[Rfam]
Overview: Rfam assigns this 156-nucleotide RNA from Populus alba to the family "MIR2912 microRNA precursor family". Lineage of the source: Eukaryota > Viridiplantae > Malpighiales > Salicaceae > Populus.

RNA sequence: UCUAGAACUCGAAAUAUGGAUUGAACACUGAAUAGUAUAUGGGCUGCAGGACAGAUUCUGACUUCUCCGUUGUUGCUACAAUUUGAACUUGAAAACGGCCUUUUUGAAUCUUGGACUCCUCAUGAAAGUUUUAGGCCUAUGUCUUAACUUUCCAUC
Numbered sequence: 001u002c003u004a005g006a007a008c009u010c011g012a013a014a015u016a017u018g019g020a021u022u023g024a025a026c027a028c029u030g031a032a033u034a035g036u037a038u039a040u041g042g043g044c045u046g047c048a049g050g051a052c053a054g055a056u057u058c059u060g061a062c063u064u065c066u067c068c069g070u071u072g073u074u075g076c077u078a079c080a081a082u083u084u085g086a087a088c089u090u091g092a093a094a095a096c097g098g099c100c101u102u103u104u105u106g107a108a109u110c111u112u113g114g115a116c117u118c119c120u121c122a123u124g125a126a127a128g129u130u131u132u133a134g135g136c137c138u139a140u141g142u143c144u145u146a147a148c149u150u151u152c153c154a155u156c
Stems, first nucleotide, its partner, number of pairs: 003154001005152003009146001011145002014142006021134005027129003035123002041119003045115001048112004054105002060099001062098002072088003
The base pairs follow the family's consensus structure, which was predicted with RNAalifold.